Clostridiales-1 RNA: a 168-nucleotide RNA. It is annotated as a small RNA.

[Rfam]
RNA sequence: UGAUACCAGAGUCAAAAGGUCUAAACCAACAUGAGCUUGCUCAUAAGUGGGUGAAUGACCUUAUGCUGCGCCCCAAUAUGAGCAUAAAAGUGGGAUGAUAAUCCCGUGAUGUGCAAAUAUUGGGGAGGAUUGUGGGAGUGCGCAGCACGAAACAAUCCAAAUACAUCG
Numbered sequence: 001u002g003a004u005a006c007c008a009g010a011g012u013c014a015a016a017a018g019g020u021c022u023a024a025a026c027c028a029a030c031a032u033g034a035g036c037u038u039g040c041u042c043a044u045a046a047g048u049g050g051g052u053g054a055a056u057g058a059c060c061u062u063a064u065g066c067u068g069c070g071c072c073c074c075a076a077u078a079u080g081a082g083c084a085u086a087a088a089a090g091u092g093g094g095a096u097g098a099u100a101a102u103c104c105c106g107u108g109a110u111g112u113g114c115a116a117a118u119a120u121u122g123g124g125g126a127g128g129a130u131u132g133u134g135g136g137a138g139u140g141c142g143c144a145g146c147a148c149g150a151a152a153c154a155a156u157c158c159a160a161a162u163a164c165a166u167c168g
Stems, first nucleotide, its partner, number of pairs: 001168004011066001013065002017061005022055001025052003029048002031044005072124008082114004093105002095102002127158007138148004